[Rfam]
RNA sequence: AGCACCUUAAAGCGUUUUCUUGUCGGCCAAAUUAUAAAAUGCUCUGGAAAAUCGUACAAAGUGUGCAAAACUAAAGUAAAAAACAGUUGCAAGUGAUUCCAAUAAACACAUUGUUGGAAUCCAUUACGCUGAUUACACGC
Dot-bracket structure: .(((((.....((((((((..((.(..............)))....))))).))).....).))))..............((.((((....((((((((.((((.......)))).)))).))))..)))).))......
Background
Small nucleolar RNA psi28S-3316: a 140-nucleotide RNA from Drosophila willistoni. Lineage of the source: Eukaryota > Dicondylia > Muscomorpha > Drosophilidae > Sophophora. From the family's description: psi28S-3316 is a member of the H/ACA class of snoRNA. This family is responsible for guiding the modification of uridine 3316 in Drosophila 28S rRNA to pseudouridine. Rfam links the family to the GO terms nucleolus and RNA processing. The sequence is in the family's curated seed alignment.